[Rfam]
Rfam assigns this 94-nucleotide sequence from Neurospora crassa to the family "tRNA". The family is grouped with related families in Rfam's "tRNA clan".
RNA sequence: GGGAUUGUAGUAUAGUGGUCAGUACUUCUCGUUGUGGUUCGAUUCGAUCAUACAACGAUCCGAGAGGACCCAGGUUCGAUUCCUGGCAAUCCCA
Numbered sequence: 001g002g003g004a005u006u007g008u009a010g011u012a013u014a015g016u017g018g019u020c021a022g023u024a025c026u027u028c029u030c031g032u033u034g035u036g037g038u039u040c041g042a043u044u045c046g047a048u049c050a051u052a053c054a055a056c057g058a059u060c061c062g063a064g065a066g067g068a069c070c071c072a073g074g075u076u077c078g079a080u081u082c083c084u085g086g087c088a089a090u091c092c093c094a
Base pairs, nucleotide, nucleotide: 001093002092003091004090005089006088007087010025011024012023013022027065028064029063030062031061070086071085072084073083074082